The record is a 163-nucleotide RNA sequence from Heterocephalus glaber, which matches "FGF-1 internal ribosome entry site (IRES)" in Rfam. The organism belongs to Heterocephalus, within Eukaryota. On this family, see Martineau et al., Mol Cell Biol 2004: "Internal Ribosome Entry Site Structural Motifs Conserved among Mammalian Fibroblast Growth Factor 1 Alternatively Spliced mRNAs". Pairs were carried over by alignment from the consensus structure, which is taken from published work. About the family: This family represents the FGF-1 internal ribosome entry site (IRES). The FGF-1 IRES is present in the 5' UTR of the mRNA and allows cap-independent translation. It is thought that FGF-1 IRES activity is strictly controlled and highly tissue specific. Rfam 15.1 lists 127 matches to the family in 125 species.
RNA sequence: AGCCUCAGGAGGGAUAAGGGCAUCGCCUCUUUUUCUUGAAGGACACUCCCUUCUGAUGGUGAAUGGGAACUCCCUUCCUCCUGCCACAGCCGGCCUGCAGCCUCUGGAUAGUACUGUGAAUGCUGAAGCAGCUUCACUGCUCUGAAGGAAGGCGCCCCAGAGC
Numbered sequence: 001a002g003c004c005u006c007a008g009g010a011g012g013g014a015u016a017a018g019g020g021c022a023u024c025g026c027c028u029c030u031u032u033u034u035c036u037u038g039a040a041g042g043a044c045a046c047u048c049c050c051u052u053c054u055g056a057u058g059g060u061g062a063a064u065g066g067g068a069a070c071u072c073c074c075u076u077c078c079u080c081c082u083g084c085c086a087c088a089g090c091c092g093g094c095c096u097g098c099a100g101c102c103u104c105u106g107g108a109u110a111g112u113a114c115u116g117u118g119a120a121u122g123c124u125g126a127a128g129c130a131g132c133u134u135c136a137c138u139g140c141u142c143u144g145a146a147g148g149a150a151g152g153c154g155c156c157c158c159a160g161a162g163c
Base pairs, nucleotide, nucleotide: 002163003162005160008158009157012156013155015149017051018050019049020048026042027041028040030038052145053144059080061077062076063075065074066073067072086138088133089132090131095128096127098125099124100123102122105120